[Rfam]
RNA sequence: AUGCCUUAAACUUAUGAGUAAGGAAAAUAACAAUACAGGGUGACACCUGAAUCCUCACUGCUAAUGGGAAACAAAUUUUUUUUUUUUUAGUUGAAGUCACUCUGUUGCUCAGGCUGGAGUGCAGUGGUACACUCACAGCCACUGCAGUUUCGACCUGCUG
Numbered sequence: 001a002u003g004c005c006u007u008a009a010a011c012u013u014a015u016g017a018g019u020a021a022g023g024a025a026a027a028u029a030a031c032a033a034u035a036c037a038g039g040g041u042g043a044c045a046c047c048u049g050a051a052u053c054c055u056c057a058c059u060g061c062u063a064a065u066g067g068g069a070a071a072c073a074a075a076u077u078u079u080u081u082u083u084u085u086u087u088u089a090g091u092u093g094a095a096g097u098c099a100c101u102c103u104g105u106u107g108c109u110c111a112g113g114c115u116g117g118a119g120u121g122c123a124g125u126g127g128u129a130c131a132c133u134c135a136c137a138g139c140c141a142c143u144g145c146a147g148u149u150u151c152g153a154c155c156u157g158c159u160g
Stems, first nucleotide, its partner, number of pairs: 004023005033052002036049004055069002058066001105160001107158002111156003115152003121145002124142005
RNA: U12 minor spliceosomal RNA